[Rfam]
RNA sequence: ACAUGUAUGACAUACAUGACGUGUAUGACAUACAUAACGUGUAUGACAUACAUAACGUGUAUGACAUACAUAACGUGUAUGACAUACAUGACGUGUAUGACAUACACGACGUGUAUUACAUGUCAUGUAUGUCAUACAUGUCAUACACAUGUAUGUCAUACAUGUCAUGUAUGUCAUACACGUCAUGUAUGUAAUACACGUCAUGUAUGUAAUACACGUCAUACACAUGUAUGUCAUACAUGUCACACACGUCAUACAUGUCAUACACGUCAUGUAUGUCAUACAUGU
Numbered sequence: 001a002c003a004u005g006u007a008u009g010a011c012a013u014a015c016a017u018g019a020c021g022u023g024u025a026u027g028a029c030a031u032a033c034a035u036a037a038c039g040u041g042u043a044u045g046a047c048a049u050a051c052a053u054a055a056c057g058u059g060u061a062u063g064a065c066a067u068a069c070a071u072a073a074c075g076u077g078u079a080u081g082a083c084a085u086a087c088a089u090g091a092c093g094u095g096u097a098u099g100a101c102a103u104a105c106a107c108g109a110c111g112u113g114u115a116u117u118a119c120a121u122g123u124c125a126u127g128u129a130u131g132u133c134a135u136a137c138a139u140g141u142c143a144u145a146c147a148c149a150u151g152u153a154u155g156u157c158a159u160a161c162a163u164g165u166c167a168u169g170u171a172u173g174u175c176a177u178a179c180a181c182g183u184c185a186u187g188u189a190u191g192u193a194a195u196a197c198a199c200g201u202c203a204u205g206u207a208u209g210u211a212a213u214a215c216a217c218g219u220c221a222u223a224c225a226c227a228u229g230u231a232u233g234u235c236a237u238a239c240a241u242g243u244c245a246c247a248c249a250c251g252u253c254a255u256a257c258a259u260g261u262c263a264u265a266c267a268c269g270u271c272a273u274g275u276a277u278g279u280c281a282u283a284c285a286u287g288u
Base pairs, nucleotide, nucleotide: 003139004138005137006136007135010132011131012130013129014128015127016126017125018124019123020122021121022120023119024118025117041087042086043085044084045083088112089111090110145219146218149208150207151206152205153204154203155202156198160188161187162186163185164184166182168180169179170178171177172176209217210216226242227241228240229239230238251284252283253278254277255276256275257274258273259272260271262269
RNA: RNA of unknown function RUF4